[Rfam]
RNA: Leucine operon leader
RNA sequence: CUGGAGUUGAACUUAAUGAUCCGUAUUACCCGCUUCAACGGUCUACUACUACUAAACGCAUUUUCGGUGCGCGGUAGACUGGUGAACGGCAUUCAGCAUUAAGUCGACGACAGUCAGAUAAAAAAACCCGCGCCGCUGCGCGGGUUUUUUU
Number, nucleotide and partner (000 for none) at each position: 001c000002u000003g000004g111005a000006g108007u107008u106009g105010a104011a000012c000013u102014u101015a100016a099017u098018g097019a000020u000021c000022c000023g000024u000025a000026u089027u088028a000029c000030c000031c084032g083033c082034u081035u000036c000037a000038a000039c000040g000041g000042u000043c000044u000045a000046c000047u000048a000049c077050u076051a075052c074053u073054a000055a000056a000057c071058g070059c069060a068061u000062u000063u000064u000065c000066g000067g000068u060069g059070c058071g057072c000073g053074g052075u051076a050077g049078a000079c000080u000081g034082g033083u032084g031085a000086a000087c000088g027089g026090c000091a000092u000093u000094c000095a000096g000097c018098a017099u016100u015101a014102a013103g000104u010105c009106g008107a007108c006109g000110a000111c004112a000113g000114u000115c000116a000117g000118a000119u000120a000121a000122a000123a148124a147125a146126a145127c144128c143129c142130g141131c140132g139133c138134c000135g000136c000137u000138g133139c132140g131141c130142g129143g128144g127145u126146u125147u124148u123149u000150u000151u000